[Rfam]
RNA sequence: GGUCAUGAAUUCCAGCAACGAGCCCCGGCUUGCUGGGUGGCAACCCUCCUGCGUGUGGGGUGCCCCGGGUGACGACCUGGUCCUGCACGAGCGCCCCGCUCGUGCCCGACAACGACGCAGC
Numbered sequence: 001g002g003u004c005a006u007g008a009a010u011u012c013c014a015g016c017a018a019c020g021a022g023c024c025c026c027g028g029c030u031u032g033c034u035g036g037g038u039g040g041c042a043a044c045c046c047u048c049c050u051g052c053g054u055g056u057g058g059g060g061u062g063c064c065c066c067g068g069g070u071g072a073c074g075a076c077c078u079g080g081u082c083c084u085g086c087a088c089g090a091g092c093g094c095c096c097c098g099c100u101c102g103u104g105c106c107c108g109a110c111a112a113c114g115a116c117g118c119a120g121c
Base pairs, nucleotide, nucleotide: 001077002076003075004074009038011037012036013035014034015033016032021030022029039064040063041062044060045059046058049055080110081109082108085105086104087103088102089101090100091099092098093097
A member of the RNA family "SAM (S-adenosyl methionine) riboswitch aptamer" from Cellulomonas sp. Leaf395, 121 nucleotides long. Rfam describes the family as follows. SAM-IV is a mRNA element that regulates gene expression via direct sensing of S-adenosylmethionine (SAM or AdoMet). SAM-IV riboswitches share conserved nucleotide positions with the previously described SAM-I riboswitches sequence analysis and molecular recognition experiments suggest that SAM-I and SAM-IV riboswitches share similar ligand binding sites, but have different scaffolds.